[Rfam]
RNA sequence: CUCGGUCCUCGGUAGUGGCUCCCGGUUCGGCCUCGCGCCGACACCGAGGGCCUCGAUCGAAGACCGGC
Number, nucleotide and partner (000 for none) at each position: 001c000002u067003c066004g065005g064006u063007c062008c000009u060010c059011g058012g057013u056014a000015g000016u000017g052018g051019c050020u049021c048022c000023c046024g045025g044026u043027u041028c040029g039030g038031c037032c000033u000034c000035g000036c000037g031038c030039c029040g028041a027042c000043a026044c025045c024046g023047a000048g021049g020050g019051c018052c017053u000054c000055g000056a013057u012058c011059g010060a009061a000062g007063a006064c005065c004066g003067g002068c000
The family of this 68-nucleotide RNA from Nocardioides seonyuensis is "Actino-pnp RNA". The match comes from Rfam's covariance-model search (61 bits). The family's RNA type in Rfam is cis-regulatory element. NCBI's taxonomy places the organism under Bacteria, Bacillati, Actinomycetota, Propionibacteriales, Nocardioides.